A member of the RNA family "Purine riboswitch aptamer" from Halobacillus karajensis, 103 nucleotides long. Rfam links the family to the GO term purine nucleobase biosynthetic process.
RNA sequence: AAAUUCAUAAUGCAACACCGCCGUAUAAUUUUGGGAAUAGGGCCCAUGAGUUUCUACCAGACUGCCGUAAAUUAGUCUGACUACGUUGGUGAAUAGAUGAUGG
Numbered sequence: 001a002a003a004u005u006c007a008u009a010a011u012g013c014a015a016c017a018c019c020g021c022c023g024u025a026u027a028a029u030u031u032u033g034g035g036a037a038u039a040g041g042g043c044c045c046a047u048g049a050g051u052u053u054c055u056a057c058c059a060g061a062c063u064g065c066c067g068u069a070a071a072u073u074a075g076u077c078u079g080a081c082u083a084c085g086u087u088g089g090u091g092a093a094u095a096g097a098u099g100a101u102g103g
Stems, first nucleotide, its partner, number of pairs: 018089003022085004029049002032046004058079007